This 112-nucleotide sequence from Chlorocebus sabaeus belongs to the Rfam family "Y RNA". For this family Rfam cites "Caenorhabditis elegans embryos contain only one major species of Ro RNP" (Van Horn et al., RNA, 1995). Y RNAs are components of the Ro ribonucleoprotein particle (Ro RNP), in association with Ro60 and La proteins. Rfam 15.1 lists 26,986 matches to the family in 650 species.
[Rfam]
RNA sequence: GGCUUGUCCAAAAGUAGUACGUUAUCUCAAUUGAUUGUUCAUAUUCAGUUACAGAUCAAACUCCUUGUUCUACUCUUUCCCUCUUCUCACUACUACACUUGACUAGUCUAGA
Dot-bracket structure: ((((.(((.((..(((((..(.....................(...((.....................))..)...........)..)))...))..))))).))))....
Numbered sequence: 001g002g003c004u005u006g007u008c009c010a011a012a013a014g015u016a017g018u019a020c021g022u023u024a025u026c027u028c029a030a031u032u033g034a035u036u037g038u039u040c041a042u043a044u045u046c047a048g049u050u051a052c053a054g055a056u057c058a059a060a061c062u063c064c065u066u067g068u069u070c071u072a073c074u075c076u077u078u079c080c081c082u083c084u085u086c087u088c089a090c091u092a093c094u095a096c097a098c099u100u101g102a103c104u105a106g107u108c109u110a111g112a
Stems, first nucleotide, its partner, number of pairs: 001108004006103003010100002014096002016091003021086001043074001047071002